[Rfam]
RNA: c-di-GMP-I riboswitch aptamer
RNA sequence: AAUGAAAAAAGGCAAAGCCAUUGAAAAGUGGUGACGCAAAGCUAUAGGGAUUUCGUUGGGUAACACCAACAAAUCAGCCAGUUGCCAAA
Numbered sequence: 001a002a003u004g005a006a007a008a009a010a011g012g013c014a015a016a017g018c019c020a021u022u023g024a025a026a027a028g029u030g031g032u033g034a035c036g037c038a039a040a041g042c043u044a045u046a047g048g049g050a051u052u053u054c055g056u057u058g059g060g061u062a063a064c065a066c067c068a069a070c071a072a073a074u075c076a077g078c079c080a081g082u083u084g085c086c087a088a089a
Base pairs, nucleotide, nucleotide: 012037013036017032018031019030020029021028022027040083041082042081043080047079048078049075050074051073056069057068058067059066